Record summary
This 88-nucleotide sequence from Paenibacillus cremeus belongs to the Rfam family "c-di-GMP-I riboswitch aptamer". The source organism's lineage runs through Bacteria, Bacillati, Bacillota, Paenibacillaceae and Paenibacillus.

Nucleotides: 088
Base pairs, nucleotide, nucleotide: 012037013036017032018031019030020029021028022027040082041081042080043079045078046077047076048073049072050071055067056066057065058064
Number, partner (000 for none) and nucleotide at each position: 001000a002000u003000a004000c005000g006000a007000u008000a009000a010000a011000g012037g013036c014000a015000u016000a017032c018031u019030u020029u021028u022027c023000g024000a025000a026000a027022g028021a029020g030019a031018a032017g033000g034000a035000c036013g037012c038000a039000a040082a041081g042080c043079u044000a045078c046077a047076g048073a049072c050071c051000u052000a053000c054000g055067g056066g057065c058064c059000g060000c061000a062000g063000a064058g065057g066056c067055c068000u069000a070000a071050g072049g073048u074000g075000g076047c077046u078045g079043g080042g081041u082040u083000g084000c085000c086000g087000a088000a

About this RNA: From the family's description: GEMM was predicted in a large-scale screen for bacterial structured RNA regulatory elements. Gene Ontology term of the family: cyclic-di-GMP binding.